Annotation: The record is a 215-nucleotide RNA sequence from Haloactinopolyspora alba, which matches "Actinobacteria sRNA Ms_IGR-5" in Rfam. It is annotated as a small RNA. The base pairs follow the family's consensus structure. A reference for the family is Li et al. (2013), "Identification of small RNAs in Mycobacterium smegmatis using heterologous Hfq", RNA.
[Rfam]
RNA sequence: ACACGGGAAAGGAGGUGGUCCGCACAGUGAAUAGCUAUCGGACUCGUGAGGUGGCUGCUCGCUAGCCACGUGCUCGACGCAGGACCAAGGGUGACCCCUUCGUUCGCCGGCCGCCGGCUGGCAAUUCCGAGCAGUCACCCGGCCCGUGGGCUCCCGGGACUCAGUCCACCCGGGCCACGUCUCUCGACGUGGAACCAGCCCACGGGCCGUUUCUC
Numbered sequence: 001a002c003a004c005g006g007g008a009a010a011g012g013a014g015g016u017g018g019u020c021c022g023c024a025c026a027g028u029g030a031a032u033a034g035c036u037a038u039c040g041g042a043c044u045c046g047u048g049a050g051g052u053g054g055c056u057g058c059u060c061g062c063u064a065g066c067c068a069c070g071u072g073c074u075c076g077a078c079g080c081a082g083g084a085c086c087a088a089g090g091g092u093g094a095c096c097c098c099u100u101c102g103u104u105c106g107c108c109g110g111c112c113g114c115c116g117g118c119u120g121g122c123a124a125u126u127c128c129g130a131g132c133a134g135u136c137a138c139c140c141g142g143c144c145c146g147u148g149g150g151c152u153c154c155c156g157g158g159a160c161u162c163a164g165u166c167c168a169c170c171c172g173g174g175c176c177a178c179g180u181c182u183c184u185c186g187a188c189g190u191g192g193a194a195c196c197a198g199c200c201c202a203c204g205g206g207c208c209g210u211u212u213c214u215c
Stems, first nucleotide, its partner, number of pairs: 014059006061122006074110002140209013153174006